[Rfam]
RNA sequence: UGGGAUGAAAUCAGUAUUUGGACAUGCGAUUUCAUGCUGAUUUUAUCUCAUG
Numbered sequence: 001u002g003g004g005a006u007g008a009a010a011u012c013a014g015u016a017u018u019u020g021g022a023c024a025u026g027c028g029a030u031u032u033c034a035u036g037c038u039g040a041u042u043u044u045a046u047c048u049c050a051u052g
Stems, first nucleotide, its partner, number of pairs: 001050017018029003
MIR1886 microRNA precursor family: a 52-nucleotide RNA sequence from Solanum lycopersicum. The family's consensus secondary structure was predicted with RNAalifold. It scores 68 bits against the family's covariance model. Rfam links the family to the GO terms RISC complex and miRNA-mediated post-transcriptional gene silencing.